The family of this 118-nucleotide RNA from Cannabis sativa is "Plastid-psbA-1 3UTR RNA". The base pairs follow the family's consensus structure, which was predicted with LocARNA. By type it is a cis-regulatory element. Plastid psbA-1 is a non-coding RNA (ncRNA) present in plastids. It was identified in inverted repeat sequences in the 3 prime untranslate region (3UTR) of photosystem II quinone-binding protein (psbA).
[Rfam]
RNA sequence: UAGAAGUUCCAUCUACAAAUGGAUAAAACUUCAGUAUUAGUCUAUAUGAUUAGUUAUUGAAAAUAAAGCUAAAGGAGCAAUACCAAACUUCUAUCAAUAAGUUUAGUAUUGCUCCUUU
Numbered sequence: 001u002a003g004a005a006g007u008u009c010c011a012u013c014u015a016c017a018a019a020u021g022g023a024u025a026a027a028a029c030u031u032c033a034g035u036a037u038u039a040g041u042c043u044a045u046a047u048g049a050u051u052a053g054u055u056a057u058u059g060a061a062a063a064u065a066a067a068g069c070u071a072a073a074g075g076a077g078c079a080a081u082a083c084c085a086a087a088c089u090u091c092u093a094u095c096a097a098u099a100a101g102u103u104u105a106g107u108a109u110u111g112c113u114c115c116u117u118u
Base pairs, nucleotide, nucleotide: 008023009022010021011020012019071118072117073116074115075114076113077112078111079110080109081108082107083106085104086103087102089097090096
Taxonomically the source falls in Cannabis (Eukaryota, Viridiplantae, Streptophyta, Tracheophyta).